The record is an 82-nucleotide sequence from Pseudoxanthomonas sp. CF125, which matches "sRNA-Xcc1" in Rfam. The base pairs follow the family's consensus structure, which was predicted with RNAalifold. It is annotated as a small RNA.

RNA sequence: GUCGGGAGUGGGCUAAUAAAAGACCCGUGAGGGGAAUAUGCCCGCCGUCUGUGUGCGGUUUCUAGCCUCCCGACAUCCCGCC
Numbered sequence: 001g002u003c004g005g006g007a008g009u010g011g012g013c014u015a016a017u018a019a020a021a022g023a024c025c026c027g028u029g030a031g032g033g034g035a036a037u038a039u040g041c042c043c044g045c046c047g048u049c050u051g052u053g054u055g056c057g058g059u060u061u062c063u064a065g066c067c068u069c070c071c072g073a074c075a076u077c078c079c080g081c082c
Stems, first nucleotide, its partner, number of pairs: 001074008011042003014038002024033003044059005